[Rfam]
RNA sequence: AGGUCCUUUAAAUCAGUCCCGUGAGGCUGAGAAGGAGACGGAUAUCAGAAAGACGCAGCACUGUCUUUGUAACUGAUCUGCUUUCGUUUGCCCUCUUGCCUUUUGGUAAGAGGGCUUUUUCAU
Numbered sequence: 001a002g003g004u005c006c007u008u009u010a011a012a013u014c015a016g017u018c019c020c021g022u023g024a025g026g027c028u029g030a031g032a033a034g035g036a037g038a039c040g041g042a043u044a045u046c047a048g049a050a051a052g053a054c055g056c057a058g059c060a061c062u063g064u065c066u067u068u069g070u071a072a073c074u075g076a077u078c079u080g081c082u083u084u085c086g087u088u089u090g091c092c093c094u095c096u097u098g099c100c101u102u103u104u105g106g107u108a109a110g111a112g113g114g115c116u117u118u119u120u121c122a123u
Stems, first nucleotide, its partner, number of pairs: 004036006013030006052084002055081004061075001063073002090115011